[Rfam]
RNA: Plant small nucleolar RNA U3
RNA sequence: ACGACCUUACUUGAACAGGAUCUGUUCUAUAGGCUCGUACCGCUGCAUCCUUUACCAAUAAGGAUGCAAGCACUUCAGUCUGGUUGAUGCAUUCUCACCUCUGGGCUAGAGCGUGAUUAACGGCCUGGAUACUCCUGAUGGGAGCUAUACAACGGCUGUAGAGGAUCGUUCCUGCCUGGCUCAGAGGUUGUCUGACAGACU
Numbered sequence: 001a002c003g004a005c006c007u008u009a010c011u012u013g014a015a016c017a018g019g020a021u022c023u024g025u026u027c028u029a030u031a032g033g034c035u036c037g038u039a040c041c042g043c044u045g046c047a048u049c050c051u052u053u054a055c056c057a058a059u060a061a062g063g064a065u066g067c068a069a070g071c072a073c074u075u076c077a078g079u080c081u082g083g084u085u086g087a088u089g090c091a092u093u094c095u096c097a098c099c100u101c102u103g104g105g106c107u108a109g110a111g112c113g114u115g116a117u118u119a120a121c122g123g124c125c126u127g128g129a130u131a132c133u134c135c136u137g138a139u140g141g142g143a144g145c146u147a148u149a150c151a152a153c154g155g156c157u158g159u160a161g162a163g164g165a166u167c168g169u170u171c172c173u174g175c176c177u178g179g180c181u182c183a184g185a186g187g188u189u190g191u192c193u194g195a196c197a198g199a200c201u
Base pairs, nucleotide, nucleotide: 001038002037003035005033006032007031013027014026015025016024017023018022044068045067046066048064049063050062051061052060078200079199080198081197082196097188098187099186100185101184102183103182104181105180106179107178108177110170111169112168113167120159121158122157123156124155125154126151127150129148130147131146132144133143134142135141
Dot-bracket structure: (((.(((.....((((((...))))))...))).).)).....(((.(((((.......))))).))).........(((((..............((((((((((((.((((......((((((((.(((((((.....)))).))).))..)))))).......))))......)))))))))))).......))))).